The family of this 97-nucleotide RNA sequence from Weissella diestrammenae is "Purine riboswitch aptamer". The organism belongs to Weissella, within Bacteria.
RNA sequence: UAAAUAUAAAUAUGAAUGUUUAGUAUAAUCGUCGGGGAAUGGUCGACGAGUUCCUACCUGCACCGAAACGCAGACUACUAAAUGACUUUUGACACAC
Numbered sequence: 001u002a003a004a005u006a007u008a009a010a011u012a013u014g015a016a017u018g019u020u021u022a023g024u025a026u027a028a029u030c031g032u033c034g035g036g037g038a039a040u041g042g043u044c045g046a047c048g049a050g051u052u053c054c055u056a057c058c059u060g061c062a063c064c065g066a067a068a069c070g071c072a073g074a075c076u077a078c079u080a081a082a083u084g085a086c087u088u089u090u091g092a093c094a095c096a097c
Base pairs, nucleotide, nucleotide: 018083019082020081021080022079023078024077025076029049030048031047032046033045034044035043058073059072060071061070